Source information: Rfam assigns this 38-nucleotide RNA sequence to the family "JUMPstart RNA". The family's RNA type in Rfam is cis-regulatory element.

RNA sequence: CAGUACUUUGGUUGCUACAAGCCAAGGGCGGUAGCAUU
Numbered sequence: 001c002a003g004u005a006c007u008u009u010g011g012u013u014g015c016u017a018c019a020a021g022c023c024a025a026g027g028g029c030g031g032u033a034g035c036a037u038u
Stems, first nucleotide, its partner, number of pairs: 008025005